[Rfam]
RNA sequence: CUGUUAUUGAAGGACGUUCUAGAGUGCGAUGGGGUUCAUACCUUUAUCUGCCAAAACGGGACCUCUGUUGAGGUAUAUAUUGAAUAUUCCGUACUAAGGAUUUAAUCCGGAACGUCUAGAGACUACACGGCAGACCAUUGUUGGUGGUAUGAAUGGAUAGUCCCUAGUGAACCAUCUAGGCAUCCCAUACAAAAUGGUUA
Numbered sequence: 001c002u003g004u005u006a007u008u009g010a011a012g013g014a015c016g017u018u019c020u021a022g023a024g025u026g027c028g029a030u031g032g033g034g035u036u037c038a039u040a041c042c043u044u045u046a047u048c049u050g051c052c053a054a055a056a057c058g059g060g061a062c063c064u065c066u067g068u069u070g071a072g073g074u075a076u077a078u079a080u081u082g083a084a085u086a087u088u089c090c091g092u093a094c095u096a097a098g099g100a101u102u103u104a105a106u107c108c109g110g111a112a113c114g115u116c117u118a119g120a121g122a123c124u125a126c127a128c129g130g131c132a133g134a135c136c137a138u139u140g141u142u143g144g145u146g147g148u149a150u151g152a153a154u155g156g157a158u159a160g161u162c163c164c165u166a167g168u169g170a171a172c173c174a175u176c177u178a179g180g181c182a183u184c185c186c187a188u189a190c191a192a193a194a195u196g197g198u199u200a
Base pairs, nucleotide, nucleotide: 003198004197005196006195007194008193012027014025015024020070021069022068029188030187031186032185033184034183035153036152037151038150039149040148041147042146050162052160056092057091058090059089061078062073063072064071093115094114121158124130134145135144136143164179165178166177167176

A member of the RNA family "GIR1 branching ribozyme" from Naegleria sp. NG458, 200 nucleotides long. It is one of the family's seed sequences. The family's consensus secondary structure is taken from published work.